[Rfam]
RNA sequence: GUUUGAGACUGGGUCUUUGUGAGCAAGAUGUCACAAAGUUGCACCAACUGGCCUGCAAAGUCCCAGUUUUAAUC
Numbered sequence: 001g002u003u004u005g006a007g008a009c010u011g012g013g014u015c016u017u018u019g020u021g022a023g024c025a026a027g028a029u030g031u032c033a034c035a036a037a038g039u040u041g042c043a044c045c046a047a048c049u050g051g052c053c054u055g056c057a058a059a060g061u062c063c064c065a066g067u068u069u070u071a072a073u074c
Stems, first nucleotide, its partner, number of pairs: 003072006010065004015060005021054001023052002026049002029046002